[Rfam]
RNA sequence: ACUACAGAUAGAGGCGCGAAUUUCAAAAUUAGCGGGUGCGAGGCAGCCAGAGCCGAAGACCACCCGUGAAAGGGAAAAUCGCCGAAGGGGAUACCACCGUGGCAGGGGAUCCGCCUGGUUAACCUGCGAACAGCAUGUUAACUGUCAUCAGUCUUUGAUGGAGAGCUAUCGGCUUU
Numbered sequence: 001a002c003u004a005c006a007g008a009u010a011g012a013g014g015c016g017c018g019a020a021u022u023u024c025a026a027a028a029u030u031a032g033c034g035g036g037u038g039c040g041a042g043g044c045a046g047c048c049a050g051a052g053c054c055g056a057a058g059a060c061c062a063c064c065c066g067u068g069a070a071a072g073g074g075a076a077a078a079u080c081g082c083c084g085a086a087g088g089g090g091a092u093a094c095c096a097c098c099g100u101g102g103c104a105g106g107g108g109a110u111c112c113g114c115c116u117g118g119u120u121a122a123c124c125u126g127c128g129a130a131c132a133g134c135a136u137g138u139u140a141a142c143u144g145u146c147a148u149c150a151g152u153c154u155u156u157g158a159u160g161g162a163g164a165g166c167u168a169u170c171g172g173c174u175u176u
Stems, first nucleotide, its partner, number of pairs: 007170005016082004021077004032067007086116003089112004094107002117143007125135003145161007
A member of the RNA family "Lysine riboswitch aptamer" from Caproicibacter fermentans, 176 nucleotides long. Rfam's curators write: Riboswitches are metabolite binding domains within certain messenger RNAs that serve as precision sensors for their corresponding targets. Allosteric rearrangement of mRNA structure is mediated by ligand binding, and this results in modulation of gene expression. This family includes riboswitches that sense lysine in a number of genes involved in lysine metabolism, including lysC. The family has 47 seed sequences and 3,224 matches in Rfam 15.1. A search with the family's covariance model found it, with a score of 106 bits.